[Rfam]
RNA sequence: AAACCUUUCAAAGGGGAGUAGCGUUAGGGAAACCUAAAACAAAGUCGUCAGUACGUGGUUUUUACCAUCGGCUUUGUUGGCAUUUUUACAAUGUCU
Dot-bracket structure: ........................(((......))).((((((((((.......(((((....)))))))))))))))..................
Numbered sequence: 001a002a003a004c005c006u007u008u009c010a011a012a013g014g015g016g017a018g019u020a021g022c023g024u025u026a027g028g029g030a031a032a033c034c035u036a037a038a039a040c041a042a043a044g045u046c047g048u049c050a051g052u053a054c055g056u057g058g059u060u061u062u063u064a065c066c067a068u069c070g071g072c073u074u075u076g077u078u079g080g081c082a083u084u085u086u087u088a089c090a091a092u093g094u095c096u
Stems, first nucleotide, its partner, number of pairs: 025036003038078010055068005
Rfam assigns this 96-nucleotide sequence from Bacillus sp. FJAT-27986 to the family "Manganese Mn2+ riboswitch aptamer (yybP-ykoY)". A search with the family's covariance model found it, with a score of 47 bits. Rfam links the family to the GO term manganese ion binding. About the family: This RNA was originally discovered in E. coli during a large scale screen and was named SraF. The family was later found to exist upstream of related families of protein genes in many bacteria, including the the yybP and ykoK genes in B. subtilis. The specific functions of these proteins are unknown, but this structured RNA element may be involved in their genetic regulation as a riboswitch. Lineage of the source: Bacteria > Bacillota > Caryophanales > Bacillaceae > Bacillus.